[Rfam]
About this RNA
Shown here is a 169-nucleotide sequence from Peptacetobacter hiranonis, a member of the family "Lysine riboswitch aptamer". Taxonomically the source falls in Peptacetobacter hiranonis (Bacteria, Bacillati, Peptostreptococcaceae, Peptacetobacter). The base pairs follow the family's consensus structure, which is taken from published work.
RNA sequence: AACCAAGGUAGAGGCGCUAUUGUUCAAUAGUAUCUAGAGGAGUUGGCAGACGUUGAAUUUAGAGAAAGGGGAUAUAGCCGAAGAUAGAAUGUAUGGCAAUAAUUCUUUCUGGGCCUGUAUAUAACAUAUGCAGGACUGUCGCUUUAAUAAGUGUUGAGCUACAAGGUUA
Number, nucleotide and partner (000 for none) at each position: 001a000002a000003c000004c000005a000006a000007g000008g162009u161010a160011g159012a000013g000014g000015c000016g078017c077018u076019a075020u074021u000022g000023u072024u071025c070026a000027a000028u000029a000030g000031u000032a000033u063034c062035u061036a060037g059038a058039g000040g000041a000042g000043u000044u000045g000046g000047c000048a000049g000050a000051c000052g000053u000054u000055g000056a000057a000058u038059u037060u036061a035062g034063a033064g000065a000066a000067a000068g000069g000070g025071g024072a023073u000074a020075u019076a018077g017078c016079c000080g000081a000082a110083g109084a108085u000086a106087g105088a104089a103090u102091g000092u000093a000094u000095g000096g000097c000098a000099a000100u000101a000102a090103u089104u088105c087106u086107u000108u084109c083110u082111g137112g136113g000114c134115c133116u132117g131118u130119a129120u128121a127122u000123a000124a000125c000126a000127u121128a120129u119130g118131c117132a116133g115134g114135a000136c112137u111138g000139u000140c153141g152142c151143u150144u149145u000146a000147a000148u000149a144150a143151g142152u141153g140154u000155u000156g000157a000158g000159c011160u010161a009162c008163a000164a000165g000166g000167u000168u000169a000